[Rfam]
RNA sequence: UCAAAGGCUCUUUUAAGAGCCACCCAUUUGGUCCGUAAAAGAGCUGU
Numbered sequence: 001u002c003a004a005a006g007g008c009u010c011u012u013u014u015a016a017g018a019g020c021c022a023c024c025c026a027u028u029u030g031g032u033c034c035g036u037a038a039a040a041g042a043g044c045u046g047u
Base pairs, nucleotide, nucleotide: 006021007020008019009018010017011016